Rfam assigns this 61-nucleotide RNA sequence from Gloeomargarita lithophora to the family "Plastid-psbN 5UTR RNA". The literature on the family includes a 2023 paper in Plant Commun by Richter et al., "Retrograde signaling in plants: A critical review focusing on the GUN pathway and beyond". Rfam 15.1 lists 2,345 matches to the family in 397 species. Rfam describes the family as follows. Plastid psbN is a non-coding RNA (ncRNA) recognised in plastids. It was reported as a conserved 11 stem-loop in the prime untranslated region (5UTR) of psbN genes. The family's RNA type in Rfam is cis-regulatory element.

RNA sequence: AAACACCCCCAUCAGCGGAGUUGUGCCCCAGCCGGGGGCGACUUUGCCGUAUUCAGAAUUG
Numbered sequence: 001a002a003a004c005a006c007c008c009c010c011a012u013c014a015g016c017g018g019a020g021u022u023g024u025g026c027c028c029c030a031g032c033c034g035g036g037g038g039c040g041a042c043u044u045u046g047c048c049g050u051a052u053u054c055a056g057a058a059u060u061g
Base pairs, nucleotide, nucleotide: 017045018044019043020042021041022040023039024038026036027035